[Rfam]
RNA sequence: GGACAUAAACGCGCUCGUAAUAAGCGGAUCGGACCCGGGGGCGGUACCCGGCGGCUCCACCAACAUCCUUCAUUUGGGGAUCAUGGGGCCGAAACAGGAUCGACGAACGUCUAAAGGGGUUUGCUUUGUCUCGGCUGUCUGCCACCGUUAUCGGCGAAACAUGUACAAUUGCAAAUGACAAUCGUGCUCCAGUAGCAAUGGCCGCGUAA
Numbered sequence: 001g002g003a004c005a006u007a008a009a010c011g012c013g014c015u016c017g018u019a020a021u022a023a024g025c026g027g028a029u030c031g032g033a034c035c036c037g038g039g040g041g042c043g044g045u046a047c048c049c050g051g052c053g054g055c056u057c058c059a060c061c062a063a064c065a066u067c068c069u070u071c072a073u074u075u076g077g078g079g080a081u082c083a084u085g086g087g088g089c090c091g092a093a094a095c096a097g098g099a100u101c102g103a104c105g106a107a108c109g110u111c112u113a114a115a116g117g118g119g120u121u122u123g124c125u126u127u128g129u130c131u132c133g134g135c136u137g138u139c140u141g142c143c144a145c146c147g148u149u150a151u152c153g154g155c156g157a158a159a160c161a162u163g164u165a166c167a168a169u170u171g172c173a174a175a176u177g178a179c180a181a182u183c184g185u186g187c188u189c190c191a192g193u194a195g196c197a198a199u200g201g202c203c204g205c206g207u208a209a
Base pairs, nucleotide, nucleotide: 001131002130003129004128005127013120014119015118016117025109026108029106030105031104035051036050037049038048039047052091053090054089055088056087057086058085132147133146134145
Dot-bracket structure: (((((.......((((........((..(((...(((((.......)))))(((((((..........................)))))))............))).)).......))))......)))))(((..........)))..............................................................

The record is a 209-nucleotide RNA from Roseobacter insulae, which matches "permuted transfer-messenger RNA" in Rfam. It is annotated as a non-coding RNA gene. Rfam's curators write: Bacterial tmRNA, also known as 10Sa RNA or SsrA, is named for its dual tRNA and mRNA-like properties. Its role is to liberate the mRNA from a stalled ribosome. To accomplish this part of the tmRNA is used as a reading frame that ends in a translation stop signal. The broken mRNA is replaced in the ribosome by the tmRNA and translation of the tmRNA leads to addition of a proteolysis tag to the incomplete protein enabling recognition by a protease.